The record is a 105-nucleotide RNA from Cercopithifilaria johnstoni, which matches "SL1 RNA" in Rfam. The family's consensus secondary structure is taken from published work. The match comes from Rfam's covariance-model search (90 bits). The organism belongs to Cercopithifilaria, within Eukaryota. Rfam's curators write: This family represents the SL1 RNA. SL1 is commonly located in the spacer region between 5S-rRNA genes where it is involved in trans-splicing. Trans-splicing is a form of RNA processing. The acquisition of a spliced leader from a SL RNA is a intra-molecular reaction which precisely joins exons derived from separately transcribed RNAs. This mechanism of mRNA maturation has been shown to occur in a number of lower eukaryotes and is commonplace in nematodes.

RNA sequence: GGUUUAAUUACCCACGUUUGAGGUAAUUGAAUGUUCCGGUCCAGAGUUUUCACUGCUGCAGCUUGAAGUAAAAUUUUGGAACAUCCUGCUUUCUAGUAAGAUAAC
Numbered sequence: 001g002g003u004u005u006a007a008u009u010a011c012c013c014a015c016g017u018u019u020g021a022g023g024u025a026a027u028u029g030a031a032u033g034u035u036c037c038g039g040u041c042c043a044g045a046g047u048u049u050u051c052a053c054u055g056c057u058g059c060a061g062c063u064u065g066a067a068g069u070a071a072a073a074u075u076u077u078g079g080a081a082c083a084u085c086c087u088g089c090u091u092u093c094u095a096g097u098a099a100g101a102u103a104a105c
Stems, first nucleotide, its partner, number of pairs: 003031010034068002037065001039062002083102003087098003